[Rfam]
RNA: Ribosomal protein L10 leader
RNA sequence: AAGUUAAAAAUAUAUUUUCCAUAGACAGUAGGUGCGAAAGCGUAACGGUGUAUACUACCUACCGAGGUAUAUAAUAAUUAGUUUAUUAUAGAUCUUCUCUGUCUAUGGGAAGAUCUUUUUUAAUAGAAAU
Numbered sequence: 001a002a003g004u005u006a007a008a009a010a011u012a013u014a015u016u017u018u019c020c021a022u023a024g025a026c027a028g029u030a031g032g033u034g035c036g037a038a039a040g041c042g043u044a045a046c047g048g049u050g051u052a053u054a055c056u057a058c059c060u061a062c063c064g065a066g067g068u069a070u071a072u073a074a075u076a077a078u079u080a081g082u083u084u085a086u087u088a089u090a091g092a093u094c095u096u097c098u099c100u101g102u103c104u105a106u107g108g109g110a111a112g113a114u115c116u117u118u119u120u121u122a123a124u125a126g127a128a129a130u
Stems, first nucleotide, its partner, number of pairs: 028062006034041002091115009